A member of the RNA family "SAM riboswitch aptamer (S box leader)" from Aneurinibacillus sp. XH2, 108 nucleotides long. Clan: SAM clan. It scores 93 bits against the family's covariance model. The family's consensus secondary structure is taken from published work. From the family's description: The SAM riboswitch is found upstream of a number of genes which code for proteins involved in methionine or cysteine biosynthesis in Gram-positive bacteria. NCBI's taxonomy places the organism under Bacteria, Bacillati, Caryophanales, Paenibacillaceae, Aneurinibacillus.
[Rfam]
RNA sequence: UUCUUAUCAAGAGUGGUGGAGGGAUUAGGCCCAAUGAAACCCAGCAACCGGCGGAUGCAUUCGCAAGGUGCUACAUCCUACAGGACAUUUUGUUCUGAAAGAUAAGAA
Numbered sequence: 001u002u003c004u005u006a007u008c009a010a011g012a013g014u015g016g017u018g019g020a021g022g023g024a025u026u027a028g029g030c031c032c033a034a035u036g037a038a039a040c041c042c043a044g045c046a047a048c049c050g051g052c053g054g055a056u057g058c059a060u061u062c063g064c065a066a067g068g069u070g071c072u073a074c075a076u077c078c079u080a081c082a083g084g085a086c087a088u089u090u091u092g093u094u095c096u097g098a099a100a101g102a103u104a105a106g107a108a
Stems, first nucleotide, its partner, number of pairs: 001108008013042001015041003021032003026080004043072004048068002051064004076100001081097006
Dot-bracket structure: ((((((((....(.(((...(((..[[[[)))......))))((((.((.((((......))))..))))))...(]]]]((((((.....))))))..)))))))))